Rfam assigns this 96-nucleotide RNA from Clostridium puniceum to the family "Guanidine-I riboswitch aptamer". Rfam 15.1 lists 1,509 matches to the family in 1,281 species. Taxonomically the source falls in Clostridium (Bacteria, Bacillati, Clostridia, Clostridiaceae). It scores 81 bits against the family's covariance model.

RNA sequence: AGUUUAGUUUUCUAGGGUUCCGCAAUUUAUUAUUGGCAGGUCCGAGAGAAAACGCAUAGCUGACUGUGUACACGGAAGGAUAAAAGCCUGGGAGAU
Numbered sequence: 001a002g003u004u005u006a007g008u009u010u011u012c013u014a015g016g017g018u019u020c021c022g023c024a025a026u027u028u029a030u031u032a033u034u035g036g037c038a039g040g041u042c043c044g045a046g047a048g049a050a051a052a053c054g055c056a057u058a059g060c061u062g063a064c065u066g067u068g069u070a071c072a073c074g075g076a077a078g079g080a081u082a083a084a085a086g087c088c089u090g091g092g093a094g095a096u
Stems, first nucleotide, its partner, number of pairs: 007053006015043002020040002022037001023035004054069006071091001073094001077089003
Dot-bracket structure: ......((((((..((...(((((((.....)))).).)).))....))))))((((((....)))))).(.[...(((.......))).)..]..